Rfam assigns this 102-nucleotide RNA sequence from Oceanobacillus sp. J11TS1 to the family "SAM riboswitch aptamer (S box leader)".
RNA sequence: UUCUUAUCCAGAGAGGUGGAGGGACUGGCCCUUAGAAGCCUCGGCAACAGACUUACAACAGAACUGUGCCAAUUCCAGUAGCGUUUAGCUAGCAGAUAAGAA
Number, nucleotide and partner (000 for none) at each position: 001u102002u101003c100004u099005u098006a097007u096008c095009c000010a000011g000012a000013g042014a041015g040016g039017u038018g000019g000020a000021g031022g030023g029024a000025c078026u077027g076028g075029c023030c022031c021032u000033u000034a000035g000036a000037a000038g017039c016040c015041u014042c013043g070044g069045c068046a067047a000048c066049a065050g000051a000052c000053u000054u000055a000056c000057a000058a000059c000060a000061g000062a000063a000064c000065u049066g048067u046068g045069c044070c043071a000072a000073u000074u094075c028076c027077a026078g025079u091080a090081g089082c088083g000084u000085u000086u000087a000088g082089c081090u080091a079092g000093c000094a074095g008096a007097u006098a005099a004100g003101a002102a001
About this RNA: A search with the family's covariance model found it, with a score of 85 bits.